[Rfam]
RNA sequence: GCCAUGGGGCCAGCGAUCUCCCCAUGAGGCUUCGAGCCGAUGUAUCGCGUCCUGAUCUUGGCAGAGGACGCGCAUG
Numbered sequence: 001g002c003c004a005u006g007g008g009g010c011c012a013g014c015g016a017u018c019u020c021c022c023c024a025u026g027a028g029g030c031u032u033c034g035a036g037c038c039g040a041u042g043u044a045u046c047g048c049g050u051c052c053u054g055a056u057c058u059u060g061g062c063a064g065a066g067g068a069c070g071c072g073c074a075u076g
Base pairs, nucleotide, nucleotide: 005024006023007022008021009020047071048070049069050068051067052066
Rfam assigns this 76-nucleotide RNA sequence from Sandaracinobacter neustonicus to the family "chrB-a RNA". It is annotated as a cis-regulatory element. The source organism's lineage runs through Bacteria, Pseudomonadati, Pseudomonadota, Sphingosinicellaceae and Sandaracinobacter.